Shown here is a 143-nucleotide sequence from Pseudorhizobium pelagicum, a member of the family "Alphaproteobacterial sRNA ar9".
RNA sequence: AUAAAAGAGGCAAGGAGAUCAAAUCCUUGCUGAUCGCGGUCAAGUCUUGGGAGGAUCAGAUCUUAGGCGCGCUCGUCGCAGCCCCGGCAACGGUUAAGGAUCACGCGAAACUGGAACAAGGCCUCACGGCCUUGUUUUUUUUU
Numbered sequence: 001a002u003a004a005a006a007g008a009g010g011c012a013a014g015g016a017g018a019u020c021a022a023a024u025c026c027u028u029g030c031u032g033a034u035c036g037c038g039g040u041c042a043a044g045u046c047u048u049g050g051g052a053g054g055a056u057c058a059g060a061u062c063u064u065a066g067g068c069g070c071g072c073u074c075g076u077c078g079c080a081g082c083c084c085c086g087g088c089a090a091c092g093g094u095u096a097a098g099g100a101u102c103a104c105g106c107g108a109a110a111c112u113g114g115a116a117c118a119a120g121g122c123c124u125c126a127c128g129g130c131c132u133u134g135u136u137u138u139u140u141u142u143u
Base pairs, nucleotide, nucleotide: 003143004142005141006140011029012028013027014026015025016024035107036106037105038104044056045055046054047053059102060101061100062099063098066083067082068081069079070078071077084093085092086091115136116135117134118133119132120131121130122129

The pairing is the family consensus, mapped onto this sequence. It is annotated as a small RNA.